[Rfam]
RNA sequence: ACGAUGUUCCGCUGCAAUAAAGGAUUUGUAUGAGCAUCUG
Numbered sequence: 001a002c003g004a005u006g007u008u009c010c011g012c013u014g015c016a017a018u019a020a021a022g023g024a025u026u027u028g029u030a031u032g033a034g035c036a037u038c039u040g
Base pairs, nucleotide, nucleotide: 003038004037005036006035007034008033009032013030014029016026017025018024
Source information:
The family of this 40-nucleotide sequence from Heyndrickxia oleronia is "Ribosomal protein L19 leader". Rfam classes the family as a cis-regulatory leader. The base pairs follow the family's consensus structure, which was predicted with CMfinder. Rfam describes the family as follows. This family is a putative r-protein leader autoregulatory structure found in B. subtilis and other low-GC Gram-positive bacteria. It is located in the 5' untranslated regions of mRNAs encoding ribosomal protein L19 (rplS). Gene Ontology term of the family: regulation of gene expression. Taxonomically the source falls in Heyndrickxia (Bacteria, Bacillati, Bacilli, Caryophanales).